[Rfam]
RNA sequence: AGUUACCUGGGGUGUUCGACAAUCCUAUCAUUUUGAACCUACAUGUACUUUUAUGGGAUUCCUACAUUGCUGUGAAGGAUGUCAGGCCACCGAUUGCAGUGGAAGACAGAUGUCGCAGUUGCGGUUACCCACCUAGCUUUGCUAGGAGUCAAAAGAUAGGAAACGGCACUUUGGGGCUUAC
Numbered sequence: 001a002g003u004u005a006c007c008u009g010g011g012g013u014g015u016u017c018g019a020c021a022a023u024c025c026u027a028u029c030a031u032u033u034u035g036a037a038c039c040u041a042c043a044u045g046u047a048c049u050u051u052u053a054u055g056g057g058a059u060u061c062c063u064a065c066a067u068u069g070c071u072g073u074g075a076a077g078g079a080u081g082u083c084a085g086g087c088c089a090c091c092g093a094u095u096g097c098a099g100u101g102g103a104a105g106a107c108a109g110a111u112g113u114c115g116c117a118g119u120u121g122c123g124g125u126u127a128c129c130c131a132c133c134u135a136g137c138u139u140u141g142c143u144a145g146g147a148g149u150c151a152a153a154a155g156a157u158a159g160g161a162a163a164c165g166g167c168a169c170u171u172u173g174g175g176g177c178u179u180a181c
Stems, first nucleotide, its partner, number of pairs: 002179001006175010017165002031156002033153001034151003038146002055130003061124002066120001069119007081107002087102004
Dot-bracket structure: .(...((((((((((.((............((((((.((...............(((...((...(..(((((((.....((....((((........))))...)).....))))))))..))...)))..............))..))).).)).......))))))))))))...)..
RNA: 6S / SsrS RNA
Organism: Robinsoniella sp. RHS